[Rfam]
RNA sequence: GGAUUCUGGUCUCAAGUGGUGAAUAGAUUGUAAGGAGAAAAUUUGUCUAGCACCAUUUGAAAUCAGUGCUCC
Numbered sequence: 001g002g003a004u005u006c007u008g009g010u011c012u013c014a015a016g017u018g019g020u021g022a023a024u025a026g027a028u029u030g031u032a033a034g035g036a037g038a039a040a041a042u043u044u045g046u047c048u049a050g051c052a053c054c055a056u057u058u059g060a061a062a063u064c065a066g067u068g069c070u071c072c
Stems, first nucleotide, its partner, number of pairs: 001072003006066005012060003016056006024049004

Record summary
The family of this 72-nucleotide RNA from Mytilus edulis is "mir-29 microRNA precursor family". The family has 168 seed sequences and 3,328 matches in Rfam 15.1. Taxonomically the source falls in Mytilus (Eukaryota, Protostomia, Spiralia, Pteriomorphia). The match comes from Rfam's covariance-model search (52 bits). The base pairs follow the family's consensus structure, which was predicted with PFOLD.